This 178-nucleotide RNA sequence from Caldanaerobacter subterraneus belongs to the Rfam family "6S / SsrS RNA".
For this family Rfam cites "6S RNA Mimics B-Form DNA to Regulate Escherichia coli RNA Polymerase" (Chen et al., Molecular Cell, 2017).
By type it is a non-coding RNA gene.
Rfam describes the family as follows. E. coli 6S RNA was the first non coding RNA to be sequenced, but its function was unknown until recently. It consists of 184 nucleotides that fold into an extended hairpin structure with a large single-stranded internal bulge. The 6S RNA specifically associates with RNA polymerase holoenzyme containing the sigma70 specificity factor. This interaction represses expression from a sigma70-dependent promoter during stationary phase. 6S RNA homologs have recently been identified in most bacterial genomes.
RNA sequence: AAGUUCCUGUGGGGUUUGUAGCGGGCUAAUUUGUUUUCACCCAACGCAACCCAUACGGGAAUCCGGGUUCAUCAGUGGAUGAAAUGCCUGGGAAACCAGGACUUCAGAAGCUGGUGACAGGGUACCCACCUGCGAGAGCAGGGAUGAAAACAUAGCCGUACGGCUCCGUGGGUAAAGU
Numbered sequence: 001a002a003g004u005u006c007c008u009g010u011g012g013g014g015u016u017u018g019u020a021g022c023g024g025g026c027u028a029a030u031u032u033g034u035u036u037u038c039a040c041c042c043a044a045c046g047c048a049a050c051c052c053a054u055a056c057g058g059g060a061a062u063c064c065g066g067g068u069u070c071a072u073c074a075g076u077g078g079a080u081g082a083a084a085u086g087c088c089u090g091g092g093a094a095a096c097c098a099g100g101a102c103u104u105c106a107g108a109a110g111c112u113g114g115u116g117a118c119a120g121g122g123u124a125c126c127c128a129c130c131u132g133c134g135a136g137a138g139c140a141g142g143g144a145u146g147a148a149a150a151c152a153u154a155g156c157c158g159u160a161c162g163g164c165u166c167c168g169u170g171g172g173u174a175a176a177g178u
Stems, first nucleotide, its partner, number of pairs: 004174001006172010017162003032152004037147003040143003057127003061123004066118001068117001070116007082104002087100005